[Rfam]
RNA sequence: UAAUCUAUUUGGGACAGAUCCUCAUUUAGUUAUGACAGACUCAUACUUAACUGCUUAGAAUCACUUGUUAUCACAAGUCUGACUACAUCAUUGACAUUGAAAAACAAAAGACAACUACUGUGUGAAUAAUAACUUUUUAAUAUUUU
Numbered sequence: 001u002a003a004u005c006u007a008u009u010u011g012g013g014a015c016a017g018a019u020c021c022u023c024a025u026u027u028a029g030u031u032a033u034g035a036c037a038g039a040c041u042c043a044u045a046c047u048u049a050a051c052u053g054c055u056u057a058g059a060a061u062c063a064c065u066u067g068u069u070a071u072c073a074c075a076a077g078u079c080u081g082a083c084u085a086c087a088u089c090a091u092u093g094a095c096a097u098u099g100a101a102a103a104a105c106a107a108a109a110g111a112c113a114a115c116u117a118c119u120g121u122g123u124g125a126a127u128a129a130u131a132a133c134u135u136u137u138u139a140a141u142a143u144u145u146u
Base pairs, nucleotide, nucleotide: 006142007141008140009139012136014134018130019129023122024121025120027117028116029115030114031113

The record is a 146-nucleotide sequence from Populus trichocarpa, which matches "MIR480 microRNA precursor family" in Rfam. A reference for the family is Lu et al. (2005), "Novel and mechanical stress-responsive MicroRNAs in Populus trichocarpa that are absent from Arabidopsis", Plant Cell. Taxonomically the source falls in Populus (Eukaryota, Magnoliopsida, eudicotyledons, Pentapetalae).